RNA sequence: CCGUCAACGUCGGGAGAAUCUGGCAAAUACCGCCAGUGCCGAAGGAGCAUGCGCCCCGCUAAACUCUCAGGCCCCAUGGACCGACGAUUGGCA
Numbered sequence: 001c002c003g004u005c006a007a008c009g010u011c012g013g014g015a016g017a018a019u020c021u022g023g024c025a026a027a028u029a030c031c032g033c034c035a036g037u038g039c040c041g042a043a044g045g046a047g048c049a050u051g052c053g054c055c056c057c058g059c060u061a062a063a064c065u066c067u068c069a070g071g072c073c074c075c076a077u078g079g080a081c082c083g084a085c086g087a088u089u090g091g092c093a
Stems, first nucleotide, its partner, number of pairs: 006088001008086006020036004038072003041068002045066003051059002
Glycine riboswitch aptamer: a 93-nucleotide RNA from Profundibacter amoris.
Gene Ontology term of the family: glycine biosynthetic process.
The match comes from Rfam's covariance-model search (59 bits).